Record summary
The record is a 111-nucleotide RNA from Arthrobacter sp. MYb227, which matches "SAM (S-adenosyl methionine) riboswitch aptamer" in Rfam. Clan: SAM clan. The source organism's lineage runs through Bacteria, Bacillati, Actinomycetes, Micrococcaceae and Arthrobacter. The base pairs follow the family's consensus structure, which is taken from published work. For this family Rfam cites "The aptamer core of SAM-IV riboswitches mimics the ligand-binding site of SAM-I riboswitches" (Weinberg et al., RNA, 2008).
[Rfam]
RNA sequence: CUUCACGAGAUGCGGCGCCAAGCUCCGACUGGCCGCGCACCAACCCCAGGUUCAUGGGUGGUUCGGAUGAAGAAGCGGUCUUACGUCAAUUGGCGUGGACAAGAGCUAGUG
Numbered sequence: 001c002u003u004c005a006c007g008a009g010a011u012g013c014g015g016c017g018c019c020a021a022g023c024u025c026c027g028a029c030u031g032g033c034c035g036c037g038c039a040c041c042a043a044c045c046c047c048a049g050g051u052u053c054a055u056g057g058g059u060g061g062u063u064c065g066g067a068u069g070a071a072g073a074a075g076c077g078g079u080c081u082u083a084c085g086u087c088a089a090u091u092g093g094c095g096u097g098g099a100c101a102a103g104a105g106c107u108a109g110u111g
Stems, first nucleotide, its partner, number of pairs: 001075004009038001011037006021030002039062003044058003078100004083096005